[Rfam]
RNA sequence: GGGGUUCCGGUUCACGUCAUUCCGUCACAGGUUGGCGACCCGGCGACC
Numbered sequence: 001g002g003g004g005u006u007c008c009g010g011u012u013c014a015c016g017u018c019a020u021u022c023c024g025u026c027a028c029a030g031g032u033u034g035g036c037g038a039c040c041c042g043g044c045g046a047c048c
Stems, first nucleotide, its partner, number of pairs: 003048003007043004015037005021031002
Notes: Shown here is a 48-nucleotide sequence from Actinoplanes italicus, a member of the family "L31-Actinobacteria ribosomal protein leader". NCBI's taxonomy places the organism under Bacteria, Actinomycetota, Actinomycetes, Micromonosporales, Actinoplanes.